[Rfam]
RNA sequence: UGAGAGAAUGACGUUGAAGGAACUCGGCAAUUUACCUCCGUAACUUCGGGAUAAGGAGGCCCAUGGCUCGCGCAAGCGGGUUGUGGGGGCACAGACCAGGGGGUGGCAACUGUUUAACAAAAACACAGGGCUCUGCGAAAUCGCAAGAUGACGUAUAGGGUCUGACGCCUGCCCGGUGCCGGAAGGUUAAGAGGAGAGGUGCAAGCCUUGAAUUGAAGCCCCGGUAAACGGCGGCCGUAACUAUAACGGUCCUAAGGUAGCGAAAUUCCUUGUCGGGUAAGUUCCGACCUGCACGAAUGGCGUAAUGACUUCCCCGCUGUCUCCAACGUCAGCUCA
Number, nucleotide and partner (000 for none) at each position: 001u336002g335003a334004g333005a000006g000007a000008a000009u331010g330011a329012c328013g327014u326015u325016g324017a000018a322019g321020g320021a000022a000023c000024u000025c000026g000027g000028c000029a000030a000031u000032u000033u000034a000035c059036c058037u057038c056039c055040g000041u000042a000043a000044c049045u000046u000047c000048g000049g044050g000051a000052u000053a000054a000055g039056g038057a037058g036059g035060c087061c086062c085063a084064u083065g082066g081067c080068u079069c078070g077071c076072g000073c000074a000075a000076g071077c070078g069079g068080g067081u066082u065083g064084u063085g062086g061087g060088g092089g000090c000091a000092c088093a000094g000095a000096c000097c000098a000099g000100g315101g314102g313103g312104u000105g310106g309107c307108a306109a000110c000111u125112g124113u123114u000115u000116a000117a000118c000119a000120a000121a000122a000123a113124c112125a111126c000127a000128g163129g162130g161131c160132u159133c158134u157135g156136c153137g000138a000139a000140a149141u148142c147143g000144c000145a000146a000147g142148a141149u140150g000151a000152c000153g136154u000155a000156u135157a134158g133159g132160g131161u130162c129163u128164g000165a000166c302167g301168c300169c299170u000171g232172c231173c230174c000175g000176g229177u228178g225179c224180c223181g222182g221183a000184a000185g220186g219187u218188u000189a000190a000191g214192a213193g000194g000195a000196g209197a208198g207199g206200u205201g000202c000203a000204a000205g200206c199207c198208u197209u196210g000211a000212a000213u192214u191215g000216a000217a000218g187219c186220c185221c182222c181223g180224g179225u178226a000227a000228a177229c176230g173231g172232c171233g251234g250235c249236c248237g247238u246239a000240a000241c000242u000243a000244u000245a000246a238247c237248g236249g235250u234251c233252c256253u000254a000255a000256g252257g000258u000259a000260g000261c000262g289263a000264a000265a000266u000267u000268c000269c000270u000271u000272g288273u287274c286275g285276g284277g283278u000279a000280a000281g000282u000283u277284c276285c275286g274287a273288c272289c262290u000291g000292c000293a000294c000295g000296a000297a000298u000299g169300g168301c167302g166303u000304a000305a000306u108307g107308a000309c106310u105311u000312c103313c102314c101315c100316g000317c000318u000319g000320u020321c019322u018323c000324c016325a015326a014327c013328g012329u011330c010331a009332g000333c004334u003335c002336a001